[Rfam]
RNA: Rhodo-rpoB RNA
Organism: Falsirhodobacter algicola
RNA sequence: GGUUCGGGAGCCUGCCGGUGGGACGGCGGGCAUGAAUGGAACCUCAACCCCCUGCUUCGCAAGCGGCGCGCGCCCGGUCCCCGACGGUCGCACG
Numbered sequence: 001g002g003u004u005c006g007g008g009a010g011c012c013u014g015c016c017g018g019u020g021g022g023a024c025g026g027c028g029g030g031c032a033u034g035a036a037u038g039g040a041a042c043c044u045c046a047a048c049c050c051c052c053u054g055c056u057u058c059g060c061a062a063g064c065g066g067c068g069c070g071c072g073c074c075c076g077g078u079c080c081c082c083g084a085c086g087g088u089c090g091c092a093c094g
Stems, first nucleotide, its partner, number of pairs: 001043005010031008067094002070091003074087003